[Rfam]
RNA sequence: UCGCUCUCGAAGUGGUUGUGGUGUGUUUCCCAUCCAUAUCACAGCCAGCUUUGAUGAGCGACA
Numbered sequence: 001u002c003g004c005u006c007u008c009g010a011a012g013u014g015g016u017u018g019u020g021g022u023g024u025g026u027u028u029c030c031c032a033u034c035c036a037u038a039u040c041a042c043a044g045c046c047a048g049c050u051u052u053g054a055u056g057a058g059c060g061a062c063a
Stems, first nucleotide, its partner, number of pairs: 005057002007054006013047009024038003
Description:
A member of the RNA family "mir-2 microRNA precursor family" from Brenthis ino, 63 nucleotides long. The family has 56 seed sequences and 918 matches in Rfam 15.1. Rfam links the family to the GO terms miRNA-mediated post-transcriptional gene silencing and RISC complex.